Shown here is a 79-nucleotide RNA from Asticcacaulis sp. YBE204, a member of the family "Makes More Granules Regulator RNA (mmgR)". The pairing is the family consensus, mapped onto this sequence.

[Rfam]
RNA sequence: AUCGAUUGCCCAUUCCUGGGCGUUUCCUCCCUGUAAACUUUUAAGCCGCGCCGCAAUGCGCGGCUUUUUUUUGCCUGUC
Numbered sequence: 001a002u003c004g005a006u007u008g009c010c011c012a013u014u015c016c017u018g019g020g021c022g023u024u025u026c027c028u029c030c031c032u033g034u035a036a037a038c039u040u041u042u043a044a045g046c047c048g049c050g051c052c053g054c055a056a057u058g059c060g061c062g063g064c065u066u067u068u069u070u071u072u073g074c075c076u077g078u079c
Base pairs, nucleotide, nucleotide: 008021009020010019011018045064046063047062048061049060050059051058
The literature on the family includes a 2016 paper in Mol Phylogenet Evol by Lagares et al., "Phylogenetic distribution and evolutionary pattern of an alpha-proteobacterial small RNA gene that controls polyhydroxybutyrate accumulation in Sinorhizobium meliloti". It scores 54 bits against the family's covariance model. About the family: SuhB later renamed mmgR (makes more granules regulator) was a putative non-coding RNA found multiple times in the Agrobacterium tumefaciens genome and related alpha-proteobacteria. Other non-coding RNAs uncovered in the same analysis include: speF, ybhL, metA, and serC.Several studies inSinorhizobium meliloti showed that suhB element is indeed a non-coding RNA:firstly it was detected on Northern blot and called Sm8RNA, secondly in an RNAseq study referred to as SmelC689.The mutant phenotype's (strain lacking the small RNA) cytoplasm contains higher content of polyhydroxybutyrate (PBH)storage granules than wild type strain. The sRNA is required to limit the PBH intracellular accumulation when the nitrogen-fixing Sinorhizobium meliloti is under condition of surplus carbon in relation to nitrogen. It has been renamed to mmgR. Further study confirmed that mmgR fine-tunes the regulation of PBH storage.Northern blot confirmed the expression of the sRNA in other rhizobia species. By type it is a small RNA.